[Rfam]
RNA sequence: AUGCCUUAAACUAAUGAGUAAGGAAAAUAACGAACUAGGGUAAUGCCUAGUUCCACAGUCAAUCUGUGAGGAAUUUUUGUACAGGUAAAGGUCGUCCUUGGGAACCCGCCUACUUUUGCGGGAGUCCCAGGUUGUAGCGAUCUACCUG
Numbered sequence: 001a002u003g004c005c006u007u008a009a010a011c012u013a014a015u016g017a018g019u020a021a022g023g024a025a026a027a028u029a030a031c032g033a034a035c036u037a038g039g040g041u042a043a044u045g046c047c048u049a050g051u052u053c054c055a056c057a058g059u060c061a062a063u064c065u066g067u068g069a070g071g072a073a074u075u076u077u078u079g080u081a082c083a084g085g086u087a088a089a090g091g092u093c094g095u096c097c098u099u100g101g102g103a104a105c106c107c108g109c110c111u112a113c114u115u116u117u118g119c120g121g122g123a124g125u126c127c128c129a130g131g132u133u134g135u136a137g138c139g140a141u142c143u144a145c146c147u148g
Base pairs, nucleotide, nucleotide: 004023005022006021007020008019032053033052034051035050036049037048038047039046054068055067056066057065058064082148083147084146085145086144089143090142091141092140093139094138095137097131098130100127101126102125105122106121107120108119109118

U12 minor spliceosomal RNA: a 148-nucleotide RNA sequence from Acanthosepion pharaonis.
On this family, see Otake et al., Mol Cell 2002: "The divergent U12-type spliceosome is required for pre-mRNA splicing and is essential for development in Drosophila".
The family is grouped with related families in Rfam's "U2 clan".
The pairing is the family consensus, mapped onto this sequence.
The source organism's lineage runs through Eukaryota, Metazoa, Bilateria, Mollusca and Acanthosepion.
Rfam classes the family as a spliceosomal small nuclear RNA.